[Rfam]
Shown here is a 147-nucleotide RNA sequence from Miscanthus lutarioriparius, a member of the family "MIR6234 microRNA precursor family". Taxonomically the source falls in Miscanthus (Eukaryota, Liliopsida, Petrosaviidae, Poaceae). It scores 100 bits against the family's covariance model. Rfam links the family to the GO terms miRNA-mediated post-transcriptional gene silencing and RISC complex. The family's consensus secondary structure was predicted with RNAalifold.

RNA sequence: CUCUUUUUCCGGACGCAAGUGUGUUCCUCUAUUUGACGGUAAAGGUGGAUGCUCGAGUUGAACCACUUCACAAAUGAUGUUGUUAAAUAUUGUACUAUUCUUACCUUACGCAUCAAGUGACGAACACACUUGCCCACCGAAAAGGAC
Numbered sequence: 001c002u003c004u005u006u007u008u009c010c011g012g013a014c015g016c017a018a019g020u021g022u023g024u025u026c027c028u029c030u031a032u033u034u035g036a037c038g039g040u041a042a043a044g045g046u047g048g049a050u051g052c053u054c055g056a057g058u059u060g061a062a063c064c065a066c067u068u069c070a071c072a073a074a075u076g077a078u079g080u081u082g083u084u085a086a087a088u089a090u091u092g093u094a095c096u097a098u099u100c101u102u103a104c105c106u107u108a109c110g111c112a113u114c115a116a117g118u119g120a121c122g123a124a125c126a127c128a129c130u131u132g133c134c135c136a137c138c139g140a141a142a143a144g145g146a147c
Stems, first nucleotide, its partner, number of pairs: 002146006010139002015133012028120002032117005038111001042107005047100005056091002059087001062084001064082002066079001069076002